Record summary
Shown here is a 73-nucleotide sequence from Penelope pileata, a member of the family "Small nucleolar RNA SNORD19". Gene Ontology terms of the family: nucleolus and RNA processing. For this family Rfam cites "RNomics: an experimental approach that identifies 201 candidates for novel, small, non-messenger RNAs in mouse" (Huttenhofer et al., EMBO J, 2001). The match comes from Rfam's covariance-model search (40 bits). Its Rfam clan is "SNORD19 clan".
RNA sequence: GAGAAAUGAGGAUACAUACUUUUUCUUACUUCUUUAUGAAGACUUCAGAUCCAACUCUGAUCUCACACAGAAG
Numbered sequence: 001g002a003g004a005a006a007u008g009a010g011g012a013u014a015c016a017u018a019c020u021u022u023u024u025c026u027u028a029c030u031u032c033u034u035u036a037u038g039a040a041g042a043c044u045u046c047a048g049a050u051c052c053a054a055c056u057c058u059g060a061u062c063u064c065a066c067a068c069a070g071a072a073g
Base pairs, nucleotide, nucleotide: 001064002063003062004061

NCBI's taxonomy places the organism under Eukaryota, Archelosauria, Archosauria, Saurischia, Penelope.